[Rfam]
RNA sequence: AAAUGCAAUGAUGAGUACUCUUAAUCCGAAUUAUUCUGUCGACCAAAAUUCAGACUACAAUUAUCUGAUCAUUU
Number, nucleotide and partner (000 for none) at each position: 001a074002a073003a072004u071005g070006c000007a000008a000009u000010g000011a000012u000013g000014a000015g000016u000017a000018c000019u000020c000021u000022u000023a000024a000025u000026c000027c000028g000029a000030a000031u000032u000033a000034u000035u000036c000037u000038g000039u000040c000041g000042a000043c000044c000045a000046a000047a000048a000049u000050u000051c000052a000053g000054a000055c000056u000057a000058c000059a000060a000061u000062u000063a000064u000065c000066u000067g000068a000069u000070c005071a004072u003073u002074u001

The family of this 74-nucleotide sequence from Raphanus sativus is "Small nucleolar RNA Z155". Gene Ontology terms of the family: nucleolus and RNA processing. Rfam 15.1 lists 429 matches to the family in 196 species. It is annotated as a C/D-box small nucleolar RNA. The base pairs follow the family's consensus structure.